[Rfam]
RNA sequence: UAAUAAGCACAUGGGAGUUUGUGGAUGCAAACUGAGAGUAUGACUAUUCCGUCAUUGACCAUUUGAACCUGUUGGAUAAUGCCAGCGUAGGGAGAGUGUAAAAGCACAUG
Numbered sequence: 001u002a003a004u005a006a007g008c009a010c011a012u013g014g015g016a017g018u019u020u021g022u023g024g025a026u027g028c029a030a031a032c033u034g035a036g037a038g039u040a041u042g043a044c045u046a047u048u049c050c051g052u053c054a055u056u057g058a059c060c061a062u063u064u065g066a067a068c069c070u071g072u073u074g075g076a077u078a079a080u081g082c083c084a085g086c087g088u089a090g091g092g093a094g095a096g097u098g099u100a101a102a103a104g105c106a107c108a109u110g
Base pairs, nucleotide, nucleotide: 007097008096010094011062012061013060014059016056017032018031019030020029021028040055041054042053043052068091069090070089071088072085073084074083075082
RNA: TPP riboswitch aptamer (THI element)
Organism: Bacillus anthracis